[Rfam]
Nucleotides: 115
Stems, first nucleotide, its partner, number of pairs: 010102003015097002018094002021091005027085004031080001033078002038074001039072008048063003
Number, partner (000 for none) and nucleotide at each position: 001000u002000a003000c004000c005000g006000a007000c008000c009000g010102u011101c012100g013000a014000c015097c016096g017000c018094g019093g020000c021091c022090u023089c024088c025087a026000g027085c028084c029083g030082c031080c032000c033078c034077g035000u036000c037000c038074c039072c040071g041070g042069u043068c044067c045066u046065g047000a048063c049062g050061c051000c052000a053000c054000u055000u056000c057000c058000c059000c060000g061050g062049c063048g064000c065046c066045a067044g068043g069042g070041c071040c072039g073000g074038g075000g076000g077034c078033g079000c080031g081000a082030g083029c084028g085027g086000a087025u088024g089023g090022g091021g092000a093019c094018c095000g096016c097015g098000a099000c100012c101011g102010a103000c104000g105000g106000u107000c108000g109000g110000c111000u112000c113000g114000c115000g